[Rfam]
RNA sequence: GUUCCCAGUGAUGGUUGAAAUUUUAAAACCAUGCUAAUUCUGAUAAUCCAAUGAUUAAAAUAUCAUUUAAUACAUUCUGAGGGAACU
Numbered sequence: 001g002u003u004c005c006c007a008g009u010g011a012u013g014g015u016u017g018a019a020a021u022u023u024u025a026a027a028a029c030c031a032u033g034c035u036a037a038u039u040c041u042g043a044u045a046a047u048c049c050a051a052u053g054a055u056u057a058a059a060a061u062a063u064c065a066u067u068u069a070a071u072a073c074a075u076u077c078u079g080a081g082g083g084a085a086c087u
Base pairs, nucleotide, nucleotide: 001086002085003084004083005082
RNA: Small nucleolar RNA snoR53Y